[Rfam]
RNA sequence: CUAUGGCUUAUAUAAGUCAUGGCGGAAGGAG
Numbered sequence: 001c002u003a004u005g006g007c008u009u010a011u012a013u014a015a016g017u018c019a020u021g022g023c024g025g026a027a028g029g030a031g
Base pairs, nucleotide, nucleotide: 001022002021003020004019005018006017007016008015